[Rfam]
Nucleotides: 140
Base pairs, nucleotide, nucleotide: 005136006135007134008133009132010131017029018028019027031120032119033110034109035048036047037046038045043108044107052085053084090106091105092104093103094102112123113122114121
Number, partner (000 for none) and nucleotide at each position: 001000u002000a003000a004000a005136u006135u007134c008133u009132u010131c011000g012000g013000g014000g015000c016000a017029g018028g019027g020000u021000g022000a023000a024000a025000u026000u027019c028018c029017c030000g031120a032119c033110c034109g035048g036047c037046g038045g039000u040000a041000u042000a043108g044107u045038c046037c047036g048035c049000g050000a051000c052085u053084c054000u055000a056000a057000u058000a059000u060000g061000a062000u063000u064000u065000g066000u067000g068000a069000u070000a071000c072000a073000c074000a075000g076000u077000c078000a079000u080000a081000g082000a083000u084053g085052a086000u087000u088000g089000a090106u091105u092104u093103g094102g095000u096000g097000a098000a099000a100000u101000u102094c103093c104092a105091a106090a107044a108043c109034c110033g111000a112123c113122a114121g115000u116000a117000a118000a119032g120031u121114c122113u123112g124000g125000a126000u127000g128000u129000g130000a131010g132009a133008a134007g135006a136005g137000c138000a139000g140000c